The record is a 130-nucleotide sequence, which matches "Betaproteobacteria-1 RNA" in Rfam. By type it is a small RNA.

RNA sequence: ACGUGAAUUGGCGGCUCUAACGACAUCGUAGCGAUUCACGGUUGCAUAGUGUUACUAGAAGGGUAAGAGGCUGAAAUAGCACAUAUACAGGUGGCGAAGAUAGUGCCUGUGCCUCGCAAGACUGUCGGGU
Numbered sequence: 001a002c003g004u005g006a007a008u009u010g011g012c013g014g015c016u017c018u019a020a021c022g023a024c025a026u027c028g029u030a031g032c033g034a035u036u037c038a039c040g041g042u043u044g045c046a047u048a049g050u051g052u053u054a055c056u057a058g059a060a061g062g063g064u065a066a067g068a069g070g071c072u073g074a075a076a077u078a079g080c081a082c083a084u085a086u087a088c089a090g091g092u093g094g095c096g097a098a099g100a101u102a103g104u105g106c107c108u109g110u111g112c113c114u115c116g117c118a119a120g121a122c123u124g125u126c127g128g129g130u
Stems, first nucleotide, its partner, number of pairs: 002040009029057003049082006068114004087110006099126006